[Rfam]
RNA sequence: UAGUUAUCAAGAAAGGCGGAGGGACUAGACCCUGUGAAGCCUUAGCAACCCUCUGUUUCAUCCCUCAAUCCAGUAUUCAGAGAAGGUGCUACAUUCUAUCCGUUCUCCCACAAGUGUAGAAAGGGCAGAUAACAU
Numbered sequence: 001u002a003g004u005u006a007u008c009a010a011g012a013a014a015g016g017c018g019g020a021g022g023g024a025c026u027a028g029a030c031c032c033u034g035u036g037a038a039g040c041c042u043u044a045g046c047a048a049c050c051c052u053c054u055g056u057u058u059c060a061u062c063c064c065u066c067a068a069u070c071c072a073g074u075a076u077u078c079a080g081a082g083a084a085g086g087u088g089c090u091a092c093a094u095u096c097u098a099u100c101c102g103u104u105c106u107c108c109c110a111c112a113a114g115u116g117u118a119g120a121a122a123g124g125g126c127a128g129a130u131a132a133c134a135u
Stems, first nucleotide, its partner, number of pairs: 003133006013043005021032003028097001044090004049086002051082004095127001100124002103121003
About this RNA:
Rfam assigns this 135-nucleotide sequence from Poritiphilus flavus to the family "SAM riboswitch aptamer (S box leader)". The SAM riboswitch is found upstream of a number of genes which code for proteins involved in methionine or cysteine biosynthesis in Gram-positive bacteria. The SAM riboswitch acts at the level of transcription termination control. The match comes from Rfam's covariance-model search (67 bits).